[Rfam]
Alphaproteobacteria transfer-messenger RNA: a 340-nucleotide RNA from Sphingomonas sp. Leaf412. NCBI's taxonomy places the organism under Bacteria, Pseudomonadati, Sphingomonadales, Sphingomonadaceae, Sphingomonas. By type it is a non-coding RNA gene. About the family: Bacterial tmRNA, also known as 10Sa RNA or SsrA, is named for its dual tRNA and mRNA-like properties. Its role is to liberate the mRNA from a stalled ribosome. To accomplish this part of the tmRNA is used as a reading frame that ends in a translation stop signal. The broken mRNA is replaced in the ribosome by the tmRNA and translation of the tmRNA leads to addition of a proteolysis tag to the incomplete protein enabling recognition by a protease. Recently a number of permuted tmRNA genes have been found encoded in two parts. tmRNAs have been identified in eubacteria and some chloroplasts but are absent from archaeal and eukaryote nuclear genomes.
Nucleotides: 340
Stems, first nucleotide, its partner, number of pairs: 040056005060195005071188007086174003090171003096112005113156007196211003201221003206217002306321004312338001315335001
Number, partner (000 for none) and nucleotide at each position: 001000c002000g003000g004000g005000u006000u007000u008000g009000a010000a011000a012000a013000u014000g015000c016000g017000c018000c019000c020000g021000c022000g023000g024000g025000g026000c027000c028000u029000a030000u031000a032000u033000c034000g035000g036000c037000a038000u039000c040056g041055u042054c043053g044052g045000g046000u047000u048000c049000u050000a051000c052044c053043c054042g055041g056040c057000u058000a059000u060195g061194g062193c063192g064191a065000u066000a067000a068000a069000c070000u071188g072187c073186g074185g075184c076183g077182u078000a079000g080000a081000c082000u083000a084000g085000g086174c087173g088172c089000a090171g091170c092169g093000g094000a095000c096112c097111c098110g099109g100108g101000g102000g103000c104000a105000g106000u107000a108100c109099c110098c111097g112096g113156c114155g115154g116153c117152u118151c119150c120000a121000c122000c123000a124000a125000a126000a127000c128000c129000g130000g131000c132000g133000c134000a135000c136000g137000c138000g139000c140000c141000g142000g143000u144000u145000u146000c147000g148000a149000c150119g151118g152117g153116g154115c155114c156113g157000a158000a159000c160000c161000a162000g163000g164000a165000u166000c167000g168000a169092c170091g171090u172088g173087u174086g175000u176000u177000g178000a179000a180000a181000g182077g183076c184075g185074c186073u187072g188071u189000u190000u191064u192063c193062g194061c195060u196211c197210g198209g199000a200000a201221u202220g203219g204000g205000a206217c207216c208000a209198c210197c211196g212000u213000a214000a215000c216207g217206g218000c219203c220202c221201a222000u223000u224000a225000c226000a227000c228000a229000a230000g231000u232000g233000c234000c235000a236000a237000c238000g239000a240000u241000a242000a243000c244000g245000a246000a247000g248000c249000a250000c251000u252000c253000g254000c255000g256000a257000u258000u259000g260000c261000g262000g263000c264000g265000u266000a267000a268000c269000u270000g271000a272000g273000g274000g275000c276000c277000u278000c279000a280000c281000g282000g283000c284000c285000u286000a287000a288000g289000g290000u291000u292000a293000c294000u295000c296000c297000a298000a299000g300000a301000u302000a303000g304000c305000g306321c307320g308319g309318u310000c311000g312338g313000a314000c315335c316000g317000a318309a319308c320307c321306g322000g323000g324000c325000a326000a327000c328000a329000g330000a331000a332000u333000c334000g335315g336000a337000a338312u339000c340000c